[Rfam]
Rfam assigns this 97-nucleotide sequence from Neorhizobium galegae to the family "RcsR1 sRNA".
The base pairs follow the family's consensus structure, which is taken from published work.
Lineage of the source: Bacteria > Alphaproteobacteria > Hyphomicrobiales > Neorhizobium galegae > Neorhizobium galegae bv. orientalis.
It is annotated as a small RNA.
Rfam links the family to the GO terms sRNA-mediated gene silencing and negative regulation of translation in response to stress.
It scores 78 bits against the family's covariance model.
From the family's description: RcsR1 (rhizobial cold and salinity stress riboregulator 1) trans-acting sRNA, formerly known as SmelC587, is a stress-related riboregulator, conserved in Sinorhizobium, Rhizobium and Agrobacterium.

Nucleotides: 097
Stems, first nucleotide, its partner, number of pairs: 011045005017039001020037003024034003049060004068093008076084003
Number, partner (000 for none) and nucleotide at each position: 001000c002000c003000a004000u005000u006000g007000c008000u009000a010000a011045c012044u013043g014042g015041u016000g017039g018000c019000c020037g021036g022035c023000a024034c025033g026032c027000u028000c029000a030000a031000c032026g033025c034024g035022g036021c037020c038000u039017u040000g041015a042014c043013c044012a045011g046000u047000c048000a049060u050059g051058u052057c053000c054000a055000u056000c057052g058051a059050c060049a061000a062000g063000a064000c065000c066000a067000c068093a069092a070091g071090c072089c073088g074087c075086c076084c077083g078082g079000a080000a081000c082078c083077c084076g085000a086075g087074g088073c089072g090071g091070c092069u093068u094000u095000u096000u097000u